Rfam assigns this 116-nucleotide RNA from Gossypium mustelinum to the family "MIR7502 microRNA precursor family".
RNA sequence: UGUUAAGAUUUUCAUCCAUUUUUGCUAUUAAAACCUAGCGUGGUUGAUAGAAUAAUCAAAUAGUUACACAGGACGUGUUGCGUACAUCUUAGUAGAAAUUGAUGAAAUUUUUAACA
Numbered sequence: 001u002g003u004u005a006a007g008a009u010u011u012u013c014a015u016c017c018a019u020u021u022u023u024g025c026u027a028u029u030a031a032a033a034c035c036u037a038g039c040g041u042g043g044u045u046g047a048u049a050g051a052a053u054a055a056u057c058a059a060a061u062a063g064u065u066a067c068a069c070a071g072g073a074c075g076u077g078u079u080g081c082g083u084a085c086a087u088c089u090u091a092g093u094a095g096a097a098a099u100u101g102a103u104g105a106a107a108u109u110u111u112u113a114a115c116a
Base pairs, nucleotide, nucleotide: 002115003114004113005112006111007110008109010107011106012105013104014103015102016101018099019098020097021096022095023094028092029091030090031089033087